[Rfam]
RNA sequence: AGGGCUUCAAAUUAAAAUGAAAUUUGGCAUGUACUAUUUCAUUGUGCAUCGCAGUUUAUGUUUGGAGCCGAGAUGUGUGUUCCCCUCGCUAUCCUGGGUUGCAAUUUUGAUGCUCCAUUAGGACGUCGGGGAACUAAAUCU
Numbered sequence: 001a002g003g004g005c006u007u008c009a010a011a012u013u014a015a016a017a018u019g020a021a022a023u024u025u026g027g028c029a030u031g032u033a034c035u036a037u038u039u040c041a042u043u044g045u046g047c048a049u050c051g052c053a054g055u056u057u058a059u060g061u062u063u064g065g066a067g068c069c070g071a072g073a074u075g076u077g078u079g080u081u082c083c084c085c086u087c088g089c090u091a092u093c094c095u096g097g098g099u100u101g102c103a104a105u106u107u108u109g110a111u112g113c114u115c116c117a118u119u120a121g122g123a124c125g126u127c128g129g130g131g132a133a134c135u136a137a138a139u140c141u
Stems, first nucleotide, its partner, number of pairs: 003069003008064005015056002018053002025051003030048005079134007087125002092123005101113003
Dot-bracket structure: ..(((..(((((..((.((.....(((..(((((.........)))))))))).))...)))))..))).........(((((((.((...(((((....(((.......))).....)))))))..))))))).......
RNA: Small nucleolar RNA snoR136
Organism: Arachis hypogaea